[Rfam]
Overview
A member of the RNA family "c-di-GMP-I riboswitch aptamer" from Romboutsia lituseburensis, 84 nucleotides long. Pairs were carried over by alignment from the consensus structure, which is taken from published work. Lineage of the source: Bacteria > Bacillota > Peptostreptococcaceae > Romboutsia > Romboutsia lituseburensis.
RNA sequence: UUAGAAUAUAGGCAAAAUUAGAGAAAUCUAAUGACGCAAAGCUAUAGGGGCUAAGAUUAUAAAUUAUGCCAGCCAGUUGCCAAA
Numbered sequence: 001u002u003a004g005a006a007u008a009u010a011g012g013c014a015a016a017a018u019u020a021g022a023g024a025a026a027u028c029u030a031a032u033g034a035c036g037c038a039a040a041g042c043u044a045u046a047g048g049g050g051c052u053a054a055g056a057u058u059a060u061a062a063a064u065u066a067u068g069c070c071a072g073c074c075a076g077u078u079g080c081c082a083a084a
Stems, first nucleotide, its partner, number of pairs: 012037002017032006040078004047074002049070003056064003
Dot-bracket structure: ...........((...((((((....))))))...))..((((...(((((....(((...)))...)))..))))))......